About this RNA: This 52-nucleotide sequence belongs to the Rfam family "6A RNA".
RNA sequence: GGAAGUGAUUGUAGGGCGCAAUCACGUUAAUCAAAAGAAAGUUCGAUCGAGG
Numbered sequence: 001g002g003a004a005g006u007g008a009u010u011g012u013a014g015g016g017c018g019c020a021a022u023c024a025c026g027u028u029a030a031u032c033a034a035a036a037g038a039a040a041g042u043u044c045g046a047u048c049g050a051g052g
Stems, first nucleotide, its partner, number of pairs: 006024006014044004
It is annotated as a small RNA.